Record summary
Rfam assigns this 117-nucleotide sequence from Vibrio renipiscarius to the family "Tryptophan operon leader". By type it is a cis-regulatory leader. At least 6 amino acid operons are known to be regulated by attenuation. In each a leader sequence of 150-200 bp is found upstream of the first gene in the operon. This leader sequence can assume two different secondary structures known as the terminator and the anti-terminator structure. In each case the leader also codes for very short peptide sequence that is rich in the end product amino acid of the operon. NCBI's taxonomy places the organism under Bacteria, Pseudomonadati, Gammaproteobacteria, Vibrionales, Vibrio. A search with the family's covariance model found it, with a score of 56 bits.
RNA sequence: UUAUCUUGGUGGCGCACUUGGAACCGUUCUUGGUGGGCAAGCGUGUAUUUCUAAUUUAUCGACAGAUUGAAAAAGAAGUCACUCACAAAGCCCGCUUAGAUUAGCGGGCUUUUUGUU
Numbered sequence: 001u002u003a004u005c006u007u008g009g010u011g012g013c014g015c016a017c018u019u020g021g022a023a024c025c026g027u028u029c030u031u032g033g034u035g036g037g038c039a040a041g042c043g044u045g046u047a048u049u050u051c052u053a054a055u056u057u058a059u060c061g062a063c064a065g066a067u068u069g070a071a072a073a074a075g076a077a078g079u080c081a082c083u084c085a086c087a088a089a090g091c092c093c094g095c096u097u098a099g100a101u102u103a104g105c106g107g108g109c110u111u112u113u114u115g116u117u
Base pairs, nucleotide, nucleotide: 009042010041015035016034017033018032020030021029022028023027089110090109091108092107093106094105095104